[Rfam]
RNA: terC RNA
RNA sequence: UGCGCGGACCGGGCCCCUCUGUCGGGAGCAUAGUCUUCCGUCAUGUCGGCCGCAUCG
Numbered sequence: 001u002g003c004g005c006g007g008a009c010c011g012g013g014c015c016c017c018u019c020u021g022u023c024g025g026g027a028g029c030a031u032a033g034u035c036u037u038c039c040g041u042c043a044u045g046u047c048g049g050c051c052g053c054a055u056c057g
Stems, first nucleotide, its partner, number of pairs: 006051002009049004023040006